[Rfam]
RNA: MIR1520 microRNA precursor family
Organism: Glycine soja
RNA sequence: UUCAGAAUUAGUUCUGUAACUUAUUUGAUUGGUCAAUGAAAACAACAAUGCAUUUCAUCUUUUAUGAAAUUAAUAUCCAAUCAGAAUAUGACACGUGAUAAUUAUUAUUC
Numbered sequence: 001u002u003c004a005g006a007a008u009u010a011g012u013u014c015u016g017u018a019a020c021u022u023a024u025u026u027g028a029u030u031g032g033u034c035a036a037u038g039a040a041a042a043c044a045a046c047a048a049u050g051c052a053u054u055u056c057a058u059c060u061u062u063u064a065u066g067a068a069a070u071u072a073a074u075a076u077c078c079a080a081u082c083a084g085a086a087u088a089u090g091a092c093a094c095g096u097g098a099u100a101a102u103u104a105u106u107a108u109u110c
Stems, first nucleotide, its partner, number of pairs: 011099003016094002020090001022088001024086002026083001028081005
Dot-bracket structure: ..........(((..((..(.(.(((.(((((............................................))))).).)).).)..))..)))...........